Rfam assigns this 94-nucleotide RNA sequence from Amborella trichopoda to the family "MIR2950 microRNA precursor family". Taxonomically the source falls in Amborella (Eukaryota, Streptophytina, Embryophyta, Amborellaceae). The match comes from Rfam's covariance-model search (77 bits). Its family is annotated with miRNA-mediated post-transcriptional gene silencing and RISC complex in the Gene Ontology.

RNA sequence: CAUGGGUUUGUGGUUUAUUCCAUCUCUUGCACACUGGACCAGUGCUUCAGCAACUGGUUGGUGUGCAGGGGGUGGAAUAUGGCACCCAUCCAUG
Number, nucleotide and partner (000 for none) at each position: 001c094002a093003u092004g091005g090006g089007u088008u000009u000010g085011u084012g083013g000014u081015u000016u079017a078018u077019u076020c075021c074022a073023u072024c071025u070026c069027u068028u067029g066030c065031a064032c063033a062034c061035u060036g059037g058038a000039c056040c000041a000042g000043u000044g000045c000046u000047u000048c000049a000050g000051c000052a000053a000054c000055u000056g039057g000058u037059u036060g035061g034062u033063g032064u031065g030066c029067a028068g027069g026070g025071g024072g023073u022074g021075g020076a019077a018078u017079a016080u000081g014082g000083c012084a011085c010086c000087c000088a007089u006090c005091c004092a003093u002094g001